[Rfam]
RNA sequence: UGGGAGACAGAUACACAAAUUGGGCGAAAAUACUGCUCUAAUUGUCACUGUAUCUCCCAAGAAUAAAUUGCCUUUUGAUGACCAGGACGAGUUGAGUGAAAUCGUCAUGGACAGAUACGGGGCAGACAAUU
Numbered sequence: 001u002g003g004g005a006g007a008c009a010g011a012u013a014c015a016c017a018a019a020u021u022g023g024g025c026g027a028a029a030a031u032a033c034u035g036c037u038c039u040a041a042u043u044g045u046c047a048c049u050g051u052a053u054c055u056c057c058c059a060a061g062a063a064u065a066a067a068u069u070g071c072c073u074u075u076u077g078a079u080g081a082c083c084a085g086g087a088c089g090a091g092u093u094g095a096g097u098g099a100a101a102u103c104g105u106c107a108u109g110g111a112c113a114g115a116u117a118c119g120g121g122g123c124a125g126a127c128a129a130u131u
Base pairs, nucleotide, nucleotide: 002058003057004056005055006054007053015045016044017043018042022038023037024036025035068125069124070123071122072121073120074119082110083109084108087105088104089103090102
Rfam assigns this 131-nucleotide sequence from Nannospalax galili to the family "Small Cajal body specific RNA 8". Rfam describes the family as follows. scaRNAs are a specific class of small nuclear RNAs which localise to the Cajal bodies and guide the modification of RNA polymerase II transcribed spliceosomal RNAs U1, U2, U4, U5 and U12. U92 belong to the H/ACA box class of guide RNAs as it has the predicted hairpin-hinge-hairpin-tail structure, conserved H/ACA-box motifs and is found associated with GAR1. Rfam classes the family as a small Cajal body RNA. The match comes from Rfam's covariance-model search (147 bits). Its family is annotated with Cajal body, nucleolus and RNA processing in the Gene Ontology.